[Rfam]
RNA sequence: UGGGAGGCUGAUACCUGGGCAGUUCUACCCUAUGUUCUACCCAUCACUAGCUCUCCCUAGAUUAUACCUGCUUUCUGAUGACCGGGGCGAAUUGAGAGAAAUCGCAACGGACAGAUACGGAGCAGACAAAA
Numbered sequence: 001u002g003g004g005a006g007g008c009u010g011a012u013a014c015c016u017g018g019g020c021a022g023u024u025c026u027a028c029c030c031u032a033u034g035u036u037c038u039a040c041c042c043a044u045c046a047c048u049a050g051c052u053c054u055c056c057c058u059a060g061a062u063u064a065u066a067c068c069u070g071c072u073u074u075c076u077g078a079u080g081a082c083c084g085g086g087g088c089g090a091a092u093u094g095a096g097a098g099a100a101a102u103c104g105c106a107a108c109g110g111a112c113a114g115a116u117a118c119g120g121a122g123c124a125g126a127c128a129a130a131a
Stems, first nucleotide, its partner, number of pairs: 002057006016043003022037001025034001068125007082110003087105004
RNA: Small Cajal body specific RNA 8
Organism: Astyanax mexicanus